Rfam assigns this 80-nucleotide RNA to the family "Small nucleolar RNA SNORD74". The family's consensus secondary structure was predicted with PFOLD. It is annotated as a C/D-box small nucleolar RNA. Its family is annotated with nucleolus and RNA processing in the Gene Ontology.

[Rfam]
RNA sequence: GUGCCCUGCCUCUGAUGAAGCCUGUGUUGGUAGGGACAUCUGACAGUAAUGAUGAAUGCCAACCGCUCUGAUGGUGGCAC
Number, nucleotide and partner (000 for none) at each position: 001g080002u079003g078004c077005c076006c000007u000008g000009c000010c000011u000012c000013u000014g000015a000016u000017g000018a000019a000020g000021c000022c000023u000024g000025u000026g000027u000028u000029g000030g000031u000032a000033g000034g000035g000036a000037c000038a000039u000040c000041u000042g000043a000044c000045a000046g000047u000048a000049a000050u000051g000052a000053u000054g000055a000056a000057u000058g000059c000060c000061a000062a000063c000064c000065g000066c000067u000068c000069u000070g000071a000072u000073g000074g000075u000076g005077g004078c003079a002080c001